[Rfam]
RNA sequence: AUCAACACCAACCGGAACCUCCACCACGUGCUCGAAUGAGGUGUGUUGACGUCGGGGGAAACCCUCCUGUGUACCAGCGGGAUAGAGAGAAAGACAAAGACCGGAAAACAAACUAAAGCGCCCUUGUGGCGCUUUAGUUUU
Numbered sequence: 001a002u003c004a005a006c007a008c009c010a011a012c013c014g015g016a017a018c019c020u021c022c023a024c025c026a027c028g029u030g031c032u033c034g035a036a037u038g039a040g041g042u043g044u045g046u047u048g049a050c051g052u053c054g055g056g057g058g059a060a061a062c063c064c065u066c067c068u069g070u071g072u073a074c075c076a077g078c079g080g081g082a083u084a085g086a087g088a089g090a091a092a093g094a095c096a097a098a099g100a101c102c103g104g105a106a107a108a109c110a111a112a113c114u115a116a117a118g119c120g121c122c123c124u125u126g127u128g129g130c131g132c133u134u135u136a137g138u139u140u141u
Base pairs, nucleotide, nucleotide: 002049003048004047005046006045007044008043014022015021031040032039033038051095052094053093055064056063057062065082066081067080068079069078070077110140111139112138113137114136115135116134117133118132119131120130121129122128